The record is a 74-nucleotide sequence from Junco hyemalis, which matches "tRNA" in Rfam. Rfam classes the family as a transfer RNA. A search with the family's covariance model found it, with a score of 58 bits. The family's consensus secondary structure is taken from published work.
Nucleotides: 074
Base pairs, nucleotide, nucleotide: 001073002072003071004070005069006068007067010026011025012024013023028044029043030042031041032040050066051065052064053063054062
Number, partner (000 for none) and nucleotide at each position: 001073g002072c003071c004070g005069g006068c007067a008000u009000a010026g011025c012024u013023c014000u015000u016000a017000a018000c019000g020000g021000u022000a023013g024012a025011g026010c027000a028044u029043c030042c031041g032040c033000c034000u035000u036000g037000u038000a039000a040032g041031c042030g043029g044028g045000g046000g047000g048000u049000u050066g051065u052064a053063a054062g055000u056000c057000c058000g059000a060000a061000u062054c063053u064052u065051a066050c067007u068006g069005u070004c071003g072002g073001c074000a